[Rfam]
RNA sequence: UUCAAUAACCGACUCCGAGCACAUCUGCCUAAAGCCGCAACCGGCCAGGGUGGCUGUGCCGCUGCAGGCGGGACUUUCCGUCCGGGCAGCCAGGGUGGUCGCCGGAAACGGCACCGCCUUCCGGCCUUGAAAAGGAGUGGCAAUGACACAG
Number, nucleotide and partner (000 for none) at each position: 001u000002u000003c145004a144005a000006u142007a000008a000009c000010c000011g000012a138013c137014u136015c135016c134017g000018a000019g059020c058021a057022c056023a055024u000025c053026u052027g051028c050029c049030u000031a000032a000033a000034g045035c044036c043037g000038c000039a000040a000041c000042c000043g036044g035045c034046c000047a000048g000049g029050g028051u027052g026053g025054c000055u023056g022057u021058g020059c019060c000061g090062c089063u088064g087065c086066a000067g000068g000069c000070g000071g000072g000073a000074c000075u000076u000077u000078c000079c000080g000081u000082c000083c000084g000085g000086g065087c064088a063089g062090c061091c000092a000093g119094g118095g117096u116097g115098g114099u000100c000101g112102c111103c110104g109105g000106a000107a000108a000109c104110g103111g102112c101113a000114c098115c097116g096117c095118c094119u093120u130121c129122c000123g000124g000125c000126c000127u000128u000129g121130a120131a000132a000133a000134g016135g015136a014137g013138u012139g000140g000141c000142a006143a000144u004145g003146a000147c000148a000149c000150a000151g000
The record is a 151-nucleotide sequence from Wenzhouxiangella sp. AB-CW3, which matches "Molybdenum/Tungsten riboswitch aptamer (Moco RNA motif)" in Rfam. Gene Ontology terms of the family: molybdenum ion binding, tungstate binding and regulation of gene expression. Taxonomically the source falls in Wenzhouxiangella (Bacteria, Pseudomonadota, Gammaproteobacteria, Wenzhouxiangellaceae). A search with the family's covariance model found it, with a score of 78 bits.